[Rfam]
RNA sequence: UGUCAAGAGUAUUUGACGUCGUUUUGGCGAGCGGAAGUCUUUUGCCUUUUAAAAAGGUGAACGGAGAUG
Numbered sequence: 001u002g003u004c005a006a007g008a009g010u011a012u013u014u015g016a017c018g019u020c021g022u023u024u025u026g027g028c029g030a031g032c033g034g035a036a037g038u039c040u041u042u043u044g045c046c047u048u049u050u051a052a053a054a055a056g057g058u059g060a061a062c063g064g065a066g067a068u069g
Stems, first nucleotide, its partner, number of pairs: 010064001013061002017059004022055004026050002029047001031045005
This 69-nucleotide sequence from Phyllobacterium endophyticum belongs to the Rfam family "S-element". The base pairs follow the family's consensus structure, which is taken from published work. The family has 29 seed sequences and 231 matches in Rfam 15.1. On this family, see Venkova-Canova et al., Mol Microbiol 2004: "Two discrete elements are required for the replication of a repABC plasmid: an antisense RNA and a stem-loop structure". Rfam describes the family as follows. This family represents a group of S-elements from p42d and related plasmids. NCBI's taxonomy places the organism under Bacteria, Pseudomonadati, Pseudomonadota, Alphaproteobacteria, Phyllobacterium. Its family is annotated with translation regulator activity and mRNA transcription in the Gene Ontology. A search with the family's covariance model found it, with a score of 66 bits.